[Rfam]
RNA sequence: UUGCCCAUUUUGGCACUAGCACAUUUUUGCUUCUGCAUAUAUUAAUCGAGCAAUUAUGUGUAGUGCCAAUAUAGGACA
Dot-bracket structure: ...((.((.((((((((.((((((..((((((...............))))))..)))))))))))))).)).))...

mir-96 microRNA precursor family: a 78-nucleotide RNA sequence from Electrophorus electricus. The literature on the family includes a 2003 paper in Dev Cell by Houbaviy et al., "Embryonic stem cell-specific MicroRNAs". Taxonomically the source falls in Electrophorus (Eukaryota, Actinopterygii, Gymnotiformes, Gymnotoidei).